[Rfam]
RNA sequence: AUAACAACAAUAAAAACCAGCAGCAUCCAAUAAAAACAACAUGUAUCGGCUCUGACACAACAAGAACAACACGCACAGAGACGCAGCUAACAGAUUUUUUUGAAGAAGAUGGCUUUCCCGAAGCACUUGCCGAGCAAGGGUUUCGCAGCCGGGCAGAGAACAAUAAAACUACCGUGAGGUAGCGCCCGAAUCGGCUGAAGUGACGAAAGCGGUCAGCGCUCAAAAAAAUACGUUUGCUCUUGACCCGGAUAGGGUCGCCUACGGCAGCAACGGGCCUGGUCAUCAAAAACAACAACAGACUUACCCGGAUAAUAAAAAAAGAGCAUACAAAGAAACCUUGAAGGGGAGCCCAGGCUCCCCUUCGUGCUUUGCGUCGUUCACCUUUCCUUGUCGCU
Numbered sequence: 001a002u003a004a005c006a007a008c009a010a011u012a013a014a015a016a017c018c019a020g021c022a023g024c025a026u027c028c029a030a031u032a033a034a035a036a037c038a039a040c041a042u043g044u045a046u047c048g049g050c051u052c053u054g055a056c057a058c059a060a061c062a063a064g065a066a067c068a069a070c071a072c073g074c075a076c077a078g079a080g081a082c083g084c085a086g087c088u089a090a091c092a093g094a095u096u097u098u099u100u101u102g103a104a105g106a107a108g109a110u111g112g113c114u115u116u117c118c119c120g121a122a123g124c125a126c127u128u129g130c131c132g133a134g135c136a137a138g139g140g141u142u143u144c145g146c147a148g149c150c151g152g153g154c155a156g157a158g159a160a161c162a163a164u165a166a167a168a169c170u171a172c173c174g175u176g177a178g179g180u181a182g183c184g185c186c187c188g189a190a191u192c193g194g195c196u197g198a199a200g201u202g203a204c205g206a207a208a209g210c211g212g213u214c215a216g217c218g219c220u221c222a223a224a225a226a227a228a229u230a231c232g233u234u235u236g237c238u239c240u241u242g243a244c245c246c247g248g249a250u251a252g253g254g255u256c257g258c259c260u261a262c263g264g265c266a267g268c269a270a271c272g273g274g275c276c277u278g279g280u281c282a283u284c285a286a287a288a289a290c291a292a293c294a295a296c297a298g299a300c301u302u303a304c305c306c307g308g309a310u311a312a313u314a315a316a317a318a319a320a321g322a323g324c325a326u327a328c329a330a331a332g333a334a335a336c337c338u339u340g341a342a343g344g345g346g347a348g349c350c351c352a353g354g355c356u357c358c359c360c361u362u363c364g365u366g367c368u369u370u371g372c373g374u375c376g377u378u379c380a381c382c383u384u385u386c387c388u389u390g391u392c393g394c395u
Stems, first nucleotide, its partner, number of pairs: 047083002050080004098225005112217002146197007169182005243255004272377001274375001276373001278301003323367004341362009
Overview
The record is a 395-nucleotide RNA from Pseudomonas sp. v388, which matches "Pseudomonas sRNA CrcZ" in Rfam. Gene Ontology term of the family: carbon catabolite repression of transcription. Taxonomically the source falls in Pseudomonas (Bacteria, Pseudomonadota, Gammaproteobacteria, Pseudomonadaceae). For this family Rfam cites "Identification of 17 Pseudomonas aeruginosa sRNAs and prediction of sRNA-encoding genes in 10 diverse pathogens using the bioinformatic tool sRNAPredict2" (Livny et al., Nucleic Acids Res, 2006). The family's consensus secondary structure was predicted with WAR. It scores 279 bits against the family's covariance model.